[Rfam]
A member of the RNA family "MIR8565 microRNA precursor family" from Amborella trichopoda, 154 nucleotides long.
Lineage of the source: Eukaryota > Streptophyta > Embryophyta > Amborellales > Amborella.
Gene Ontology terms of the family: RISC complex and miRNA-mediated post-transcriptional gene silencing.
RNA sequence: CUCAUACCCAUGUGUGUAGGACUCCAAACGAUCGUCAUUAAAUUUGGUACAGAUCUCUAGAAAAGUUAUCACAUGUGUGUGGGAUUUGAUUUUUCUAGAGAUCUGUGUCAAAUUUAAUGGUGAUCAUUUGGGGUCCUACACAUAUGGGUGUGGG
Number, nucleotide and partner (000 for none) at each position: 001c000002u153003c152004a151005u150006a149007c148008c147009c146010a145011u144012g143013u142014g000015u140016g139017u138018a137019g136020g135021a134022c133023u132024c131025c130026a129027a128028a127029c000030g125031a124032u123033c000034g121035u120036c119037a118038u117039u116040a115041a114042a113043u112044u111045u110046g109047g108048u107049a106050c105051a104052g103053a102054u101055c100056u099057c098058u097059a096060g095061a094062a093063a092064a091065g090066u089067u088068a087069u082070c081071a080072c079073a078074u000075g000076u000077g000078u073079g072080u071081g070082g069083g000084a000085u000086u000087u068088g067089a066090u065091u064092u063093u062094u061095c060096u059097a058098g057099a056100g055101a054102u053103c052104u051105g050106u049107g048108u047109c046110a045111a044112a043113u042114u041115u040116a039117a038118u037119g036120g035121u034122g000123a032124u031125c030126a000127u028128u027129u026130g025131g024132g023133g022134u021135c020136c019137u018138a017139c016140a015141c000142a013143u012144a011145u010146g009147g008148g007149u006150g005151u004152g003153g002154g000